Background:
The family of this 91-nucleotide sequence from Nostocoides japonicum is "tRNA". Rfam classes the family as a transfer RNA. The family's consensus secondary structure is taken from published work. The organism belongs to Nostocoides japonicum, within Bacteria.
[Rfam]
RNA sequence: GGAGGCGUCGCCUAGUCCGGUCUAUGGCGCCCGCCUGCUAAGCGGGUUUGGGUCUUAAAGCCCAUCGAGGGUUCAAAUCCCUCCGCCUCCG
Numbered sequence: 001g002g003a004g005g006c007g008u009c010g011c012c013u014a015g016u017c018c019g020g021u022c023u024a025u026g027g028c029g030c031c032c033g034c035c036u037g038c039u040a041a042g043c044g045g046g047u048u049u050g051g052g053u054c055u056u057a058a059a060g061c062c063c064a065u066c067g068a069g070g071g072u073u074c075a076a077a078u079c080c081c082u083c084c085g086c087c088u089c090c091g
Base pairs, nucleotide, nucleotide: 001090002089003088004087005086006085007084010028011027012026030046031045032044033043034042067083068082069081070080071079